[Rfam]
RNA: chrB-b RNA
RNA sequence: CGGGGUUUGCGGCUUCCCCGCUAGAUGGGUGACCAUCCAAUUGCUGC
Numbered sequence: 001c002g003g004g005g006u007u008u009g010c011g012g013c014u015u016c017c018c019c020g021c022u023a024g025a026u027g028g029g030u031g032a033c034c035a036u037c038c039a040a041u042u043g044c045u046g047c
Stems, first nucleotide, its partner, number of pairs: 001020005009047005024037005